[Rfam]
RNA sequence: CUGGUGUUGAUUGUCCAAACGCAAUUCUUGUGUAACUUCUCCAGUCCAGGAGUUGUGGAUGGACAUCUUGCCCCAG
Numbered sequence: 001c002u003g004g005u006g007u008u009g010a011u012u013g014u015c016c017a018a019a020c021g022c023a024a025u026u027c028u029u030g031u032g033u034a035a036c037u038u039c040u041c042c043a044g045u046c047c048a049g050g051a052g053u054u055g056u057g058g059a060u061g062g063a064c065a066u067c068u069u070g071c072c073c074c075a076g
Stems, first nucleotide, its partner, number of pairs: 001076004006071001009067003013064005020057011

The family of this 76-nucleotide RNA sequence from Labrus bergylta is "mir-219 microRNA precursor family".